The family of this 279-nucleotide RNA from Medicago truncatula is "MIR2655 microRNA precursor family".

RNA sequence: CCCUUAACUAUUAAAAGUUUCGUUUUGGUCCCUUAACUUACUUUUUGGUUUCGUUUUGGUCCCUUAACUAUUAAAAGUUUCAUUUUGGUGCUUUAACUUACUUUUUGGUUUCGUUUUGGUCCCUUAACUCUUCCUCCGUCAACCACUUUGGUCCUUUAUGUUAGGAUGAAUGUAUUAGAGUUAAGGGACCAAAAUGAAACCAAAAAAUAAGUUAAGGGACCAAAACGAAAUCAAAAAAUAAGUUAAGAAACCAAAACGAAACUUUUAAUAGUUAAGGGA
Dot-bracket structure: .(((((((..............(((.(((..(((((((((.((.((((((((((((((..................................................................................................................................................................)))))))))))))).)).)))))))))..))).)))..............)))))))..
The source organism's lineage runs through Eukaryota, Viridiplantae, Spermatophyta, Magnoliopsida and Medicago.
It scores 155 bits against the family's covariance model.